[Rfam]
RNA sequence: AAACCUGAGAGUUUGAUCCUGGCUCAGAACGAACGCUGGCGGCAGGCCUAACACAUGCAAGUCGAGCGGUCCCUUCGGGGAUAGCGGCAGACGGGUGAGUAACGCGUGGGAACCUAUCCAUCGGUACGGAAUAGCUCCGGGAAACUGGAAUUAAUACCGUAUGCGCCCUAUGGGGGAAAGAUUUAUCGCCGAUGGCCGGGCCCGCGUUGGAUUAGCUAGUAGGUUGGGUAAUGGCUGACCUAGGCGACGAUCCAUAGCUGGUCUGAGAGGAUGAUCAGCCACACUGGGACUGAGACACGGCCCAGACUCCUACGGGAGGCAGCAGUGGGGAAUAUUGGACAAUGGGGGCAACCCUGAUCCAGCCAUGCCGCGUGAGUGAUGACGGCCUUAGGGUUGUAAAGCUCUUUCAGCAGUGAAGAUAAUGACAUUAUCUGCAGAAGAAGCCCCGGCUAACUUCGUGCCAGCAGCCGCGGUAAUACGAAGGGGGCUAGCGUUGUUCGGAAUCACUG
Numbered sequence: 001a002a003a004c005c006u007g008a009g010a011g012u013u014u015g016a017u018c019c020u021g022g023c024u025c026a027g028a029a030c031g032a033a034c035g036c037u038g039g040c041g042g043c044a045g046g047c048c049u050a051a052c053a054c055a056u057g058c059a060a061g062u063c064g065a066g067c068g069g070u071c072c073c074u075u076c077g078g079g080g081a082u083a084g085c086g087g088c089a090g091a092c093g094g095g096u097g098a099g100u101a102a103c104g105c106g107u108g109g110g111a112a113c114c115u116a117u118c119c120a121u122c123g124g125u126a127c128g129g130a131a132u133a134g135c136u137c138c139g140g141g142a143a144a145c146u147g148g149a150a151u152u153a154a155u156a157c158c159g160u161a162u163g164c165g166c167c168c169u170a171u172g173g174g175g176g177a178a179a180g181a182u183u184u185a186u187c188g189c190c191g192a193u194g195g196c197c198g199g200g201c202c203c204g205c206g207u208u209g210g211a212u213u214a215g216c217u218a219g220u221a222g223g224u225u226g227g228g229u230a231a232u233g234g235c236u237g238a239c240c241u242a243g244g245c246g247a248c249g250a251u252c253c254a255u256a257g258c259u260g261g262u263c264u265g266a267g268a269g270g271a272u273g274a275u276c277a278g279c280c281a282c283a284c285u286g287g288g289a290c291u292g293a294g295a296c297a298c299g300g301c302c303c304a305g306a307c308u309c310c311u312a313c314g315g316g317a318g319g320c321a322g323c324a325g326u327g328g329g330g331a332a333u334a335u336u337g338g339a340c341a342a343u344g345g346g347g348g349c350a351a352c353c354c355u356g357a358u359c360c361a362g363c364c365a366u367g368c369c370g371c372g373u374g375a376g377u378g379a380u381g382a383c384g385g386c387c388u389u390a391g392g393g394u395u396g397u398a399a400a401g402c403u404c405u406u407u408c409a410g411c412a413g414u415g416a417a418g419a420u421a422a423u424g425a426c427a428u429u430a431u432c433u434g435c436a437g438a439a440g441a442a443g444c445c446c447c448g449g450c451u452a453a454c455u456u457c458g459u460g461c462c463a464g465c466a467g468c469c470g471c472g473g474u475a476a477u478a479c480g481a482a483g484g485g486g487g488c489u490a491g492c493g494u495u496g497u498u499c500g501g502a503a504u505c506a507c508u509g
Stems, first nucleotide, its partner, number of pairs: 009025005027499004032495006039371006045364002047329001052327003056324003061088003066085002069082005095282003104207007113199002118195007126160004134151001136149005166175003180187002208254003215245003220242008257279004261272004284305005307318004335361001337360003343356005374404004384395004408440001410435004418426001443488005454483005464471002
RNA: Bacterial small subunit ribosomal RNA, nucleotides 1 to 509